[Rfam]
RNA sequence: GGACAUAAACGCGCUCGUAAUAAGCGGAUCGGACCCGGGGGCGGUACCCGGCCACUCCACCAUAACCCGUUCAUUUGGCGGCCAUGGGGUGGAAACAGGAUCGACGAACGUCUAAAGGGGUUAGCUUUGUCCCGGCUGUCUGCCACCGUUACCGGCGAAAACAGUACAAUUGCAAAUGACAAUCGUGCUCCGGUCGCUCUGGCUGCGUAA
Numbered sequence: 001g002g003a004c005a006u007a008a009a010c011g012c013g014c015u016c017g018u019a020a021u022a023a024g025c026g027g028a029u030c031g032g033a034c035c036c037g038g039g040g041g042c043g044g045u046a047c048c049c050g051g052c053c054a055c056u057c058c059a060c061c062a063u064a065a066c067c068c069g070u071u072c073a074u075u076u077g078g079c080g081g082c083c084a085u086g087g088g089g090u091g092g093a094a095a096c097a098g099g100a101u102c103g104a105c106g107a108a109c110g111u112c113u114a115a116a117g118g119g120g121u122u123a124g125c126u127u128u129g130u131c132c133c134g135g136c137u138g139u140c141u142g143c144c145a146c147c148g149u150u151a152c153c154g155g156c157g158a159a160a161a162c163a164g165u166a167c168a169a170u171u172g173c174a175a176a177u178g179a180c181a182a183u184c185g186u187g188c189u190c191c192g193g194u195c196g197c198u199c200u201g202g203c204u205g206c207g208u209a210a
Stems, first nucleotide, its partner, number of pairs: 001132005013121004025110002029107003035051005052092007133148003

The record is a 210-nucleotide sequence from Thalassococcus profundi, which matches "permuted transfer-messenger RNA" in Rfam. The literature on the family includes a 2010 paper in RNA Biol by Mao et al., "Variations on the tmRNA gene". From the family's description: Bacterial tmRNA, also known as 10Sa RNA or SsrA, is named for its dual tRNA and mRNA-like properties. Gene Ontology term of the family: RNA catabolic process. By type it is a non-coding RNA gene. Pairs were carried over by alignment from the consensus structure, which is taken from published work.